Source information
The family of this 84-nucleotide RNA from Equus caballus is "mir-9014 microRNA precursor family". Gene Ontology terms of the family: RISC complex and miRNA-mediated post-transcriptional gene silencing.
Nucleotides: 084
Base pairs, nucleotide, nucleotide: 002083003082004081006079007078008077010075011074013072015070018067020065021064022063023062024061025060029058030057036056037055038054039053042050043049044048
Number, partner (000 for none) and nucleotide at each position: 001000g002083g003082a004081g005000c006079c007078a008077u009000c010075g011074g012000g013072a014000g015070g016000u017000a018067u019000a020065c021064c022063a023062a024061u025060c026000c027000a028000g029058c030057u031000a032000g033000g034000a035000a036056a037055a038054g039053a040000a041000a042050c043049c044048u045000g046000c047000c048044a049043g050042g051000a052000g053039u054038c055037u056036u057030g058029g059000a060025g061024g062023u063022u064021g065020g066000c067018g068000a069000c070015u071000g072013u073000g074011c075010u076000a077008a078007u079006g080000a081004c082003u083002u084000a